Rfam assigns this 59-nucleotide sequence from Amaricoccus sp. HAR-UPW-R2A-40 to the family "sul1 RNA". Taxonomically the source falls in Amaricoccus (Bacteria, Pseudomonadati, Pseudomonadota, Alphaproteobacteria). It is annotated as a riboswitch.

RNA sequence: UCAGGACCUGCGGAUCGCACCGCGGGUGGCUCUUCCGGCCGCCGAUCCGCCGGACAACC
Number, nucleotide and partner (000 for none) at each position: 001u000002c000003a000004g000005g000006a027007c026008c025009u024010g023011c022012g020013g000014a000015u000016c000017g000018c000019a000020c012021c000022g011023c010024g009025g008026g007027u006028g000029g000030c000031u000032c000033u000034u054035c053036c052037g051038g050039c049040c000041g000042c000043c000044g000045a000046u000047c000048c000049g039050c038051c037052g036053g035054a034055c000056a000057a000058c000059c000